RNA sequence: UGGUACAAGUAGGAGCUACCCGCUUCUCACCUGAAUAACGCGUUAAAGCUGUUACCAGGUAUGUGAUUGACUAUUAAAGCCAUUUAUAUAUGCUUAAUAAUCAGGUGCGGGUGUUUCGACACUCGCAUCUUUUUUUUGUG
Numbered sequence: 001u002g003g004u005a006c007a008a009g010u011a012g013g014a015g016c017u018a019c020c021c022g023c024u025u026c027u028c029a030c031c032u033g034a035a036u037a038a039c040g041c042g043u044u045a046a047a048g049c050u051g052u053u054a055c056c057a058g059g060u061a062u063g064u065g066a067u068u069g070a071c072u073a074u075u076a077a078a079g080c081c082a083u084u085u086a087u088a089u090a091u092g093c094u095u096a097a098u099a100a101u102c103a104g105g106u107g108c109g110g111g112u113g114u115u116u117c118g119a120c121a122c123u124c125g126c127a128u129c130u131u132u133u134u135u136u137u138g139u140g
Stems, first nucleotide, its partner, number of pairs: 011027006029060003037053003040049002106127009
Notes
This 140-nucleotide RNA from Rossellomorea vietnamensis belongs to the Rfam family "Ribosomal protein L20 leader". Gene Ontology term of the family: regulation of gene expression. On this family, see Zengel and Lindahl, Prog Nucleic Acid Res Mol Biol 1994: "Diverse mechanisms for regulating ribosomal protein synthesis in Escherichia coli".